RNA sequence: GGUUCGGGAGCCAGCUGACGGGACAGCUGGCAUGAAUGGAACCUUCCCCCCUAUGCCCAAGCGGCGCGCUCCUGUGGCCCGACAGGACGUGUG
Numbered sequence: 001g002g003u004u005c006g007g008g009a010g011c012c013a014g015c016u017g018a019c020g021g022g023a024c025a026g027c028u029g030g031c032a033u034g035a036a037u038g039g040a041a042c043c044u045u046c047c048c049c050c051c052u053a054u055g056c057c058c059a060a061g062c063g064g065c066g067c068g069c070u071c072c073u074g075u076g077g078c079c080c081g082a083c084a085g086g087a088c089g090u091g092u093g
Stems, first nucleotide, its partner, number of pairs: 001043005010031008065093005070087005
A member of the RNA family "Rhodo-rpoB RNA", 93 nucleotides long. By type it is a cis-regulatory element. The base pairs follow the family's consensus structure, which is taken from published work.